[Rfam]
RNA sequence: CUCACCAUCACGACCUGUGUCAGCAUCUCCCGGCCACGUUCUUCGGGGCGUGUGACGGUUGAGAUACUGACAGUUCGUCCAUCAUGGAGCUUUCUUACUCUCAAUAGAGUGUUUCGGACGACAGGUGCGAAGAACAACUUUGGCAUCUUCCGGCAGCCUGAGCUCACCGCAAGGUUUGAGCUCGGUGUAUGGUUGUUUGUCAGGCAGACUGAUUCCUGAUCCCUUUUGCUAGGCCGUUGGCCUUUGAUGCUUGGGACUAACCCAGUCAGCUACAUAU
Numbered sequence: 001c002u003c004a005c006c007a008u009c010a011c012g013a014c015c016u017g018u019g020u021c022a023g024c025a026u027c028u029c030c031c032g033g034c035c036a037c038g039u040u041c042u043u044c045g046g047g048g049c050g051u052g053u054g055a056c057g058g059u060u061g062a063g064a065u066a067c068u069g070a071c072a073g074u075u076c077g078u079c080c081a082u083c084a085u086g087g088a089g090c091u092u093u094c095u096u097a098c099u100c101u102c103a104a105u106a107g108a109g110u111g112u113u114u115c116g117g118a119c120g121a122c123a124g125g126u127g128c129g130a131a132g133a134a135c136a137a138c139u140u141u142g143g144c145a146u147c148u149u150c151c152g153g154c155a156g157c158c159u160g161a162g163c164u165c166a167c168c169g170c171a172a173g174g175u176u177u178g179a180g181c182u183c184g185g186u187g188u189a190u191g192g193u194u195g196u197u198u199g200u201c202a203g204g205c206a207g208a209c210u211g212a213u214u215c216c217u218g219a220u221c222c223c224u225u226u227u228g229c230u231a232g233g234c235c236g237u238u239g240g241c242c243u244u245u246g247a248u249g250c251u252u253g254g255g256a257c258u259a260a261c262c263c264a265g266u267c268a269g270c271u272a273c274a275u276a277u
Base pairs, nucleotide, nucleotide: 011129012128013126014125015124016123017122018121019071020070021069022068023067026064027063028062029061030058031057032056034054035052036051038049039048040047041046079120082117083116086113087112089110090109091108140199142197147192154187155186157184160183161182162181163180164179165178167174168173204270205269207267208266209265210264211263220256221255222254223253228250229249232242233241234240235239